This 112-nucleotide RNA from Nocardiopsis ansamitocini belongs to the Rfam family "TPP riboswitch aptamer (THI element)". A search with the family's covariance model found it, with a score of 70 bits. Taxonomically the source falls in Nocardiopsis (Bacteria, Actinomycetes, Streptosporangiales, Nocardiopsidaceae). Rfam describes the family as follows. Vitamin B(1) in its active form thiamin pyrophosphate (TPP) is an essential coenzyme that is synthesised by coupling of pyrimidine and thiazole moieties in bacteria.
RNA sequence: ACAGAUCCCCGCGGGAGCCGGGUGUGAUCCGGCUGAGAGGGAGGCUGCAAGCCUCCGACCGCACGAACCUGAUCCGGGUCAUGCCGGCGAAGGGAGUGGAGCGUCAUGGACC
Numbered sequence: 001a002c003a004g005a006u007c008c009c010c011g012c013g014g015g016a017g018c019c020g021g022g023u024g025u026g027a028u029c030c031g032g033c034u035g036a037g038a039g040g041g042a043g044g045c046u047g048c049a050a051g052c053c054u055c056c057g058a059c060c061g062c063a064c065g066a067a068c069c070u071g072a073u074c075c076g077g078g079u080c081a082u083g084c085c086g087g088c089g090a091a092g093g094g095a096g097u098g099g100a101g102c103g104u105c106a107u108g109g110a111c112c
Base pairs, nucleotide, nucleotide: 006100007099008098010096011062012061013060014059017033018032019031020030021029040056041055042054043053044052045051046050068093069092070091074087075086076085077084